[Rfam]
RNA sequence: CGGGCCCCCUUCCCGGGGGCCUGGCGGCCCGACCCCGGUACCUGGUACGGCCGGGGCGG
Numbered sequence: 001c002g003g004g005c006c007c008c009c010u011u012c013c014c015g016g017g018g019g020c021c022u023g024g025c026g027g028c029c030c031g032a033c034c035c036c037g038g039u040a041c042c043u044g045g046u047a048c049g050g051c052c053g054g055g056g057c058g059g
Stems, first nucleotide, its partner, number of pairs: 001023009029059003033056007

L17-Actino-Proteobacteria ribosomal protein leader: a 59-nucleotide RNA sequence from Nonomuraea solani. A search with the family's covariance model found it, with a score of 51 bits. The family's consensus secondary structure is taken from published work. Taxonomically the source falls in Nonomuraea (Bacteria, Actinomycetota, Actinomycetes, Streptosporangiaceae). For this family Rfam cites "Discovery of 20 novel ribosomal leader candidates in bacteria and archaea" (Eckert and Weinberg, BMC Microbiol, 2020).